[Rfam]
A member of the RNA family "SR1 sRNA" from Salinibacillus xinjiangensis, 192 nucleotides long. Taxonomically the source falls in Salinibacillus (Bacteria, Bacillati, Bacillota, Caryophanales). It scores 92 bits against the family's covariance model. The family's consensus secondary structure is taken from published work. For this family Rfam cites "In vitro analysis of the interaction between the small RNA SR1 and its primary target ahrC mRNA" (Heidrich et al., Nucleic Acids Res, 2007). Rfam classes the family as a small RNA.

RNA sequence: UACGAAAUGAAAACGUUUUAAUAAAAUAAGGAGCUGGUCUUGUGAUGGGCACAAUUGUUUGUCAAGAUUGUCAACGUGUAAUUGAACAUUUUGAGGAUGAAAAGGUGACCACAUUGUACGGAAAAGGCUGCGACUGUGAACAAAACAAAAAAUAAUAAAAAUGCUGCCUCAUUUGGGGCAGCAUUUUUAUUA
Numbered sequence: 001u002a003c004g005a006a007a008u009g010a011a012a013a014c015g016u017u018u019u020a021a022u023a024a025a026a027u028a029a030g031g032a033g034c035u036g037g038u039c040u041u042g043u044g045a046u047g048g049g050c051a052c053a054a055u056u057g058u059u060u061g062u063c064a065a066g067a068u069u070g071u072c073a074a075c076g077u078g079u080a081a082u083u084g085a086a087c088a089u090u091u092u093g094a095g096g097a098u099g100a101a102a103a104g105g106u107g108a109c110c111a112c113a114u115u116g117u118a119c120g121g122a123a124a125a126g127g128c129u130g131c132g133a134c135u136g137u138g139a140a141c142a143a144a145a146c147a148a149a150a151a152a153u154a155a156u157a158a159a160a161a162u163g164c165u166g167c168c169u170c171a172u173u174u175g176g177g178g179c180a181g182c183a184u185u186u187u188u189a190u191u192a
Base pairs, nucleotide, nucleotide: 013106014105016104017103018102019101027093028092029091030090031089033087035085046081048079050078052076058074059073155190156189157188158187159186160185161184162183163182164181165180166179167178